[Rfam]
RNA: FMN riboswitch aptamer (RFN element)
RNA sequence: AUAUUCCUUCGGGGUCGGGUGAAAGUCCCAACCGGCGGUGAUGAGGCAUGCCUCUUAGUCCGUGACCCGGCUUUACGCUUAGUGAAGACGGUGGAUUUGGUGAAAUUCCAAAGCCGACAGUUAUAGUCUGGAUGGGAGAAGGAAUGG
Numbered sequence: 001a002u003a004u005u006c007c008u009u010c011g012g013g014g015u016c017g018g019g020u021g022a023a024a025g026u027c028c029c030a031a032c033c034g035g036c037g038g039u040g041a042u043g044a045g046g047c048a049u050g051c052c053u054c055u056u057a058g059u060c061c062g063u064g065a066c067c068c069g070g071c072u073u074u075a076c077g078c079u080u081a082g083u084g085a086a087g088a089c090g091g092u093g094g095a096u097u098u099g100g101u102g103a104a105a106u107u108c109c110a111a112a113g114c115c116g117a118c119a120g121u122u123a124u125a126g127u128c129u130g131g132a133u134g135g136g137a138g139a140a141g142g143a144a145u146g147g
Base pairs, nucleotide, nucleotide: 003145004144005143006142007141008140009139010138017029018028019027031127032126033116034115035063036062037061038060058114059113067091068090096112097111098110099109100108118130119129120128